[Rfam]
RNA sequence: UUCUAAUGAUGAGCCUGCCAUGCUAAUACUGAUGCACCAGUUUGACUCUGGUCUCUCUGGGUGUAAUGAGUUGAGCAAAACCUCUCACACAGGUCGUGUGAUCUGAAGAAA
Numbered sequence: 001u002u003c004u005a006a007u008g009a010u011g012a013g014c015c016u017g018c019c020a021u022g023c024u025a026a027u028a029c030u031g032a033u034g035c036a037c038c039a040g041u042u043u044g045a046c047u048c049u050g051g052u053c054u055c056u057c058u059g060g061g062u063g064u065a066a067u068g069a070g071u072u073g074a075g076c077a078a079a080a081c082c083u084c085u086c087a088c089a090c091a092g093g094u095c096g097u098g099u100g101a102u103c104u105g106a107a108g109a110a111a
Base pairs, nucleotide, nucleotide: 001110002109003108004107044053045052046051

Rfam assigns this 111-nucleotide RNA from Triplophysa tibetana to the family "Small nucleolar RNA U6-53/MBII-28".
The source organism's lineage runs through Eukaryota, Deuterostomia, Euteleostomi, Actinopterygii and Triplophysa.
Rfam classes the family as a C/D-box small nucleolar RNA.